[Rfam]
The record is a 140-nucleotide sequence from Stanieria cyanosphaera, which matches "c-di-AMP riboswitch aptamer (ydaO/yuaA leader)" in Rfam. Taxonomically the source falls in Stanieria cyanosphaera (Bacteria, Bacillati, Dermocarpellaceae, Stanieria). A search with the family's covariance model found it, with a score of 74 bits.
RNA sequence: UAAGUAAGUCAGCUUAAUUUCCUAACUUCAAGGAAAACGGAGGAACCGAUUUAGGGGCAUAUCUCUAUAGUUUAGUUAGAGAAGAACAUCUCUCAGUUCUAGCCCGUCAGCUAACUUCGUCGGCAUUGAGAGGAGACUGA
Numbered sequence: 001u002a003a004g005u006a007a008g009u010c011a012g013c014u015u016a017a018u019u020u021c022c023u024a025a026c027u028u029c030a031a032g033g034a035a036a037a038c039g040g041a042g043g044a045a046c047c048g049a050u051u052u053a054g055g056g057g058c059a060u061a062u063c064u065c066u067a068u069a070g071u072u073u074a075g076u077u078a079g080a081g082a083a084g085a086a087c088a089u090c091u092c093u094c095a096g097u098u099c100u101a102g103c104c105c106g107u108c109a110g111c112u113a114a115c116u117u118c119g120u121c122g123g124c125a126u127u128g129a130g131a132g133g134a135g136a137c138u139g140a
Stems, first nucleotide, its partner, number of pairs: 012124003018036006037120006047054001055105003063081004084099004